RNA sequence: UGGCUACAAAAUAACUUAUUUUGUAGCCACUUUGAAUUACGAUAAUUACUAUAUUAAUUUACAAGAUUAUAGUAACUCCUUACCAACAUUACGGUAAAUAUCCCCAUGUGUUAAAGUAACCCAACUAUCGUAAAUUAGUAUAUAAAAUUAUUGUAAAUGGAGAUGGCUAUAGAAUAACAUAUUUUGUAGCUA
Dot-bracket structure: (((((((((((((..((((((((((((((.(((...(((((((((((..(((((((((((((..(((....((.....(((...(((((...((.......))....))))).))).......)).))))))))))))))))...)))))))))))...))).))))))))))))))..)))))))))))))
Numbered sequence: 001u002g003g004c005u006a007c008a009a010a011a012u013a014a015c016u017u018a019u020u021u022u023g024u025a026g027c028c029a030c031u032u033u034g035a036a037u038u039a040c041g042a043u044a045a046u047u048a049c050u051a052u053a054u055u056a057a058u059u060u061a062c063a064a065g066a067u068u069a070u071a072g073u074a075a076c077u078c079c080u081u082a083c084c085a086a087c088a089u090u091a092c093g094g095u096a097a098a099u100a101u102c103c104c105c106a107u108g109u110g111u112u113a114a115a116g117u118a119a120c121c122c123a124a125c126u127a128u129c130g131u132a133a134a135u136u137a138g139u140a141u142a143u144a145a146a147a148u149u150a151u152u153g154u155a156a157a158u159g160g161a162g163a164u165g166g167c168u169a170u171a172g173a174a175u176a177a178c179a180u181a182u183u184u185u186g187u188a189g190c191u192a
Stems, first nucleotide, its partner, number of pairs: 001192013016177014031162003037156011050142013065129003072125002079116003085112005093103002
A member of the RNA family "MIR6217 microRNA precursor family" from Sorghum bicolor, 192 nucleotides long. The source organism's lineage runs through Eukaryota, Petrosaviidae, commelinids, Andropogoneae and Sorghum. It scores 134 bits against the family's covariance model.